[Rfam]
RNA sequence: GGUAGUAGCAAAUAUUCAAGGGAGCUUCCUUGAAGACUGAAGUGGAGCAGGGUUUCUCCGGAACCGAAGUGGGCGGAGAGUUAGUCGAUCCUAAGGUCAAAGGCGAGAGUCUGGUACAAGAGGCCCAGCCCCCCCUCGGGGGGGUGGGGGCAGGACCAAAAGGGAAACUGGCUAAAAUUCCAGUACUCGAGAGUGGGGGAUAAGCGGCGACGCAAAUCGUUAGGGAGACCUUGGUCUCAGCCCUGGGGAGAGUUAUCUUUUCUGUUUAACGGGUUGGGCCCCGGGCCCCAGCAAUGGGGUCCGGGACUCGGUAAUUUGCUCCGGAAUGAUGUUGCAUCGCGAAGGAGUAGAUAACCCGGUAGAGUGGCUAUGUCUUGGGGGGAAUCCUUAGGGGUCCCCCCCACGGCGUGUCAUCCGGUGCGCUGAGCCUGAGCCUUGAAAAUCCCUAACCAUUACAUCCUUUCACCUUAAGUCGUACCCAUAACCGCAUCAGGUCUCCUAGGUGAGUAGCCUCUAGUUAA
Numbered sequence: 001g002g003u004a005g006u007a008g009c010a011a012a013u014a015u016u017c018a019a020g021g022g023a024g025c026u027u028c029c030u031u032g033a034a035g036a037c038u039g040a041a042g043u044g045g046a047g048c049a050g051g052g053u054u055u056c057u058c059c060g061g062a063a064c065c066g067a068a069g070u071g072g073g074c075g076g077a078g079a080g081u082u083a084g085u086c087g088a089u090c091c092u093a094a095g096g097u098c099a100a101a102g103g104c105g106a107g108a109g110u111c112u113g114g115u116a117c118a119a120g121a122g123g124c125c126c127a128g129c130c131c132c133c134c135c136u137c138g139g140g141g142g143g144g145u146g147g148g149g150g151c152a153g154g155a156c157c158a159a160a161a162g163g164g165a166a167a168c169u170g171g172c173u174a175a176a177a178u179u180c181c182a183g184u185a186c187u188c189g190a191g192a193g194u195g196g197g198g199g200a201u202a203a204g205c206g207g208c209g210a211c212g213c214a215a216a217u218c219g220u221u222a223g224g225g226a227g228a229c230c231u232u233g234g235u236c237u238c239a240g241c242c243c244u245g246g247g248g249a250g251a252g253u254u255a256u257c258u259u260u261u262c263u264g265u266u267u268a269a270c271g272g273g274u275u276g277g278g279c280c281c282c283g284g285g286c287c288c289c290a291g292c293a294a295u296g297g298g299g300u301c302c303g304g305g306a307c308u309c310g311g312u313a314a315u316u317u318g319c320u321c322c323g324g325a326a327u328g329a330u331g332u333u334g335c336a337u338c339g340c341g342a343a344g345g346a347g348u349a350g351a352u353a354a355c356c357c358g359g360u361a362g363a364g365u366g367g368c369u370a371u372g373u374c375u376u377g378g379g380g381g382g383a384a385u386c387c388u389u390a391g392g393g394g395u396c397c398c399c400c401c402c403a404c405g406g407c408g409u410g411u412c413a414u415c416c417g418g419u420g421c422g423c424u425g426a427g428c429c430u431g432a433g434c435c436u437u438g439a440a441a442a443u444c445c446c447u448a449a450c451c452a453u454u455a456c457a458u459c460c461u462u463u464c465a466c467c468u469u470a471a472g473u474c475g476u477a478c479c480c481a482u483a484a485c486c487g488c489a490u491c492a493g494g495u496c497u498c499c500u501a502g503g504u505g506a507g508u509a510g511c512c513u514c515u516a517g518u519u520a521a
Base pairs, nucleotide, nucleotide: 015034016033017032018031019030020029035519036518037517038516044499045498046497047496050479051478055079056078057077058076059075060074064072065071086475087474088473090163091162095157096156097114098113099112102111103110104109124150125149126148167184168183169182170181171180187471189469190468193466194465195464196463197461198460204213205212206211221448222447223446224445225444226443230433231432232431233430236427237426238425239424240423241422243418244417245416246266247265249263250262251261270310271309272308273307274306280305281304282303283302284301285300286299287298288297289296317413318407319406320405485494486493501513502512503511504510
RNA: Eukaryotic large subunit ribosomal RNA, nucleotides 1529 to 2049